[Rfam]
RNA sequence: UUGCUGGAGCUGGUAAAAAGGAACCAGAUCAACUCUAAACUGGAUUUGGUCCCCUUCAACCAGCAGCAGCUA
Numbered sequence: 001u002u003g004c005u006g007g008a009g010c011u012g013g014u015a016a017a018a019a020g021g022a023a024c025c026a027g028a029u030c031a032a033c034u035c036u037a038a039a040c041u042g043g044a045u046u047u048g049g050u051c052c053c054c055u056u057c058a059a060c061c062a063g064c065a066g067c068a069g070c071u072a
Stems, first nucleotide, its partner, number of pairs: 003070004009064006017056002020052003024049007
mir-133 microRNA precursor family: a 72-nucleotide RNA from Microcaecilia unicolor. Lineage of the source: Eukaryota > Deuterostomia > Vertebrata > Teleostomi > Microcaecilia. Pairs were carried over by alignment from the consensus structure, which was predicted with PFOLD. The match comes from Rfam's covariance-model search (75 bits). From the family's description: mir-133 was first experimentally characterised in mouse and homologues have since been discovered in several other species. A reference for the family is Lagos-Quintana et al. (2002), "Identification of tissue-specific microRNAs from mouse", Curr Biol.